This 53-nucleotide RNA from Vineibacter terrae belongs to the Rfam family "serC leader". Lineage of the source: Bacteria > Pseudomonadati > Alphaproteobacteria > Hyphomicrobiales > Vineibacter.
RNA sequence: GGGCGGGCCACGCCCCCCCACCGGGGCGCUUCUCUUCUGGAAGGGAGAGGCUG
Number, nucleotide and partner (000 for none) at each position: 001g000002g000003g000004c000005g000006g000007g000008c000009c000010a000011c028012g027013c026014c025015c024016c023017c000018c000019c000020a000021c000022c000023g016024g015025g014026g013027c012028g011029c000030u000031u000032c000033u048034c047035u046036u045037c044038u043039g000040g000041a000042a000043g038044g037045g036046a035047g034048a033049g000050g000051c000052u000053g000
The pairing is the family consensus, mapped onto this sequence. For this family Rfam cites "Evidence for a second class of S-adenosylmethionine riboswitches and other regulatory RNA motifs in alpha-proteobacteria" (Corbino et al., Genome Biol, 2005). Rfam's curators write: This family is a putative regulatory RNA structure that is found upstream of the serC-serA operon in some alpha-proteobacteria. The final stem of the structure overlaps the ribosome binding site of the serC reading frame.